[Rfam]
This 371-nucleotide sequence from Renibacterium salmoninarum belongs to the Rfam family "Bacterial RNase P class A".
The family's consensus secondary structure is taken from published work.
Lineage of the source: Bacteria > Bacillati > Actinomycetes > Renibacterium > Renibacterium salmoninarum.
RNA sequence: UGGGGCAACUGGGCGAUCGCGUGUUGUGCAAACAACCCGAGGAACGUCCGGGCUCCGAAGAGCACAGUGGUGGGUAACACCCACUCGGGGUAACCCGCAGGCCAGUGCCACAGAAAAUAGACCGCCUCUGCAUGCAGAGGUAAGGGUGAAACGGCGGUGUAAGAGACCACCGCUUUCCGGGUGACCGGAAAGGCUAAGGUAAACCCCACUGGGAGCAAGGCCAGACAGGGCACGUUUGAGGGCUGCUCGCCCGAGUGUCCGGGUAGGCUGCUAGAGGGCGUCGGCAACGGCGUCCGUAGAUGGAUGAUCGUCGCUUCUAUGCUGGUAACGGCGUAGUAAGACAGAACCCGGCGUACAGGUUGCCCCAUCCG
Numbered sequence: 001u002g003g004g005g006c007a008a009c010u011g012g013g014c015g016a017u018c019g020c021g022u023g024u025u026g027u028g029c030a031a032a033c034a035a036c037c038c039g040a041g042g043a044a045c046g047u048c049c050g051g052g053c054u055c056c057g058a059a060g061a062g063c064a065c066a067g068u069g070g071u072g073g074g075u076a077a078c079a080c081c082c083a084c085u086c087g088g089g090g091u092a093a094c095c096c097g098c099a100g101g102c103c104a105g106u107g108c109c110a111c112a113g114a115a116a117a118u119a120g121a122c123c124g125c126c127u128c129u130g131c132a133u134g135c136a137g138a139g140g141u142a143a144g145g146g147u148g149a150a151a152c153g154g155c156g157g158u159g160u161a162a163g164a165g166a167c168c169a170c171c172g173c174u175u176u177c178c179g180g181g182u183g184a185c186c187g188g189a190a191a192g193g194c195u196a197a198g199g200u201a202a203a204c205c206c207c208a209c210u211g212g213g214a215g216c217a218a219g220g221c222c223a224g225a226c227a228g229g230g231c232a233c234g235u236u237u238g239a240g241g242g243c244u245g246c247u248c249g250c251c252c253g254a255g256u257g258u259c260c261g262g263g264u265a266g267g268c269u270g271c272u273a274g275a276g277g278g279c280g281u282c283g284g285c286a287a288c289g290g291c292g293u294c295c296g297u298a299g300a301u302g303g304a305u306g307a308u309c310g311u312c313g314c315u316u317c318u319a320u321g322c323u324g325g326u327a328a329c330g331g332c333g334u335a336g337u338a339a340g341a342c343a344g345a346a347c348c349c350g351g352c353g354u355a356c357a358g359g360u361u362g363c364c365c366c367a368u369c370c371g
Base pairs, nucleotide, nucleotide: 001367002366003365004364005363006362007361008360009359010358011356012312013311014310015309016308017307018306020039021038023036024035025034026033027032044354045353046352048351049350050349051348052347053215054214055213056212060248061247062246063245065211066210067209068208069207070084071083072082073081074080085099086097087096088095089094100206101205105204106203107200108199109198122145123144124141125140126139127138128137129136130135153171154170156168157167158166172194173192174191175190176189177188178187179186180185219269220268221267222266228260229259230258231257232256233255240252241251242250243249276295277294278293279292280291281290282289283288